The family of this 96-nucleotide sequence from Corynebacterium argentoratense is "Bacterial small signal recognition particle RNA". The source organism's lineage runs through Bacteria, Bacillati, Actinomycetota, Corynebacteriaceae and Corynebacterium argentoratense. The signal recognition particle (SRP) is a universally conserved ribonucleoprotein involved in the co-translational targeting of proteins to membranes. The match comes from Rfam's covariance-model search (62 bits). It is annotated as a non-coding RNA gene.
RNA sequence: UUGAUGAUCUCGCGUGGCGUUAUCUCAUGAACUCCCCCAGGGCAGGAAUGCAGCAAGGGUCAGUGGGCUCUGUCGGGUACGCGAGGUCCUUUAUUU
Numbered sequence: 001u002u003g004a005u006g007a008u009c010u011c012g013c014g015u016g017g018c019g020u021u022a023u024c025u026c027a028u029g030a031a032c033u034c035c036c037c038c039a040g041g042g043c044a045g046g047a048a049u050g051c052a053g054c055a056a057g058g059g060u061c062a063g064u065g066g067g068c069u070c071u072g073u074c075g076g077g078u079a080c081g082c083g084a085g086g087u088c089c090u091u092u093a094u095u096u
Base pairs, nucleotide, nucleotide: 004090006088007087008086009085010084011083012082013081014080015077018075019074021072022071024067025066026065027064028063034059035058036057042051043050044049